This 154-nucleotide sequence from Streptomyces sp. 136MFCol5.1 belongs to the Rfam family "Streptomyces sRNA scr5239". It is annotated as a small RNA. A search with the family's covariance model found it, with a score of 127 bits. Pairs were carried over by alignment from the consensus structure, which is taken from published work. Taxonomically the source falls in Streptomyces (Bacteria, Bacillati, Kitasatosporales, Streptomycetaceae).
[Rfam]
RNA sequence: CUUCCGCUCUCCCCGCACAGGAGAGCGGAUCGAGGUGGCCGCGCUCUCUGCCCUGACUGCGACGGCACCUCUCCCCGGCCGGGGGCACCGCACACCGCCGGCCGAGCAACUCCGGGCUGCGGUGCCGGACGGGCUGAGGGUCCCGUCCUGGCGC
Numbered sequence: 001c002u003u004c005c006g007c008u009c010u011c012c013c014c015g016c017a018c019a020g021g022a023g024a025g026c027g028g029a030u031c032g033a034g035g036u037g038g039c040c041g042c043g044c045u046c047u048c049u050g051c052c053c054u055g056a057c058u059g060c061g062a063c064g065g066c067a068c069c070u071c072u073c074c075c076c077g078g079c080c081g082g083g084g085g086c087a088c089c090g091c092a093c094a095c096c097g098c099c100g101g102c103c104g105a106g107c108a109a110c111u112c113c114g115g116g117c118u119g120c121g122g123u124g125c126c127g128g129a130c131g132g133g134c135u136g137a138g139g140g141u142c143c144c145g146u147c148c149u150g151g152c153g154c
Stems, first nucleotide, its partner, number of pairs: 003029004008024005032071005039065003043060002045056002076104006085096001109123003113119002127148007